This 140-nucleotide sequence from Falcunculus frontatus belongs to the Rfam family "Small nucleolar RNA SNORA8". Rfam describes the family as follows. ACA8 is a member of the H/ACA class of snoRNA that guide the sites of modification of uridines to pseudouridines. Rfam links the family to the GO terms RNA processing and nucleolus. Taxonomically the source falls in Falcunculus (Eukaryota, Opisthokonta, Euteleostomi, Pachycephalidae). The base pairs follow the family's consensus structure, which was predicted with RNAfold.
RNA sequence: UGCAGUGUUACAGUACCUGCACCCAGCAGCCUUCUCCUGGUGGGAUGUUCAAAAAGCAGUGCUGCAGCAGCACAGCAUUUGGCAUCCAUGGUUUUCCUCCUGUUGUGUCUGUUAAACCUGGUAUUUUUUCUGAAAUAGUC
Numbered sequence: 001u002g003c004a005g006u007g008u009u010a011c012a013g014u015a016c017c018u019g020c021a022c023c024c025a026g027c028a029g030c031c032u033u034c035u036c037c038u039g040g041u042g043g044g045a046u047g048u049u050c051a052a053a054a055a056g057c058a059g060u061g062c063u064g065c066a067g068c069a070g071c072a073c074a075g076c077a078u079u080u081g082g083c084a085u086c087c088a089u090g091g092u093u094u095u096c097c098u099c100c101u102g103u104u105g106u107g108u109c110u111g112u113u114a115a116a117c118c119u120g121g122u123a124u125u126u127u128u129u130c131u132g133a134a135a136u137a138g139u140c
Base pairs, nucleotide, nucleotide: 002062003061004060006058007057018053019048020047021046023044024043025041027039028038029037066128067127069125070124073120074119075118081109082108083107084106085105